[Rfam]
RNA sequence: ACGCAGGAAUGUUCGGUUAAAACCGCCGCUUUGCGCGGCAACACCGAACCACCCUGCUUGGCAGG
Numbered sequence: 001a002c003g004c005a006g007g008a009a010u011g012u013u014c015g016g017u018u019a020a021a022a023c024c025g026c027c028g029c030u031u032u033g034c035g036c037g038g039c040a041a042c043a044c045c046g047a048a049c050c051a052c053c054c055u056g057c058u059u060g061g062c063a064g065g
Stems, first nucleotide, its partner, number of pairs: 011049007025039005053065005
This 65-nucleotide RNA from Lentibacillus populi belongs to the Rfam family "Bacillaceae-1 RNA".
A search with the family's covariance model found it, with a score of 36 bits.
The organism belongs to Lentibacillus, within Bacteria.
Rfam classes the family as a small RNA.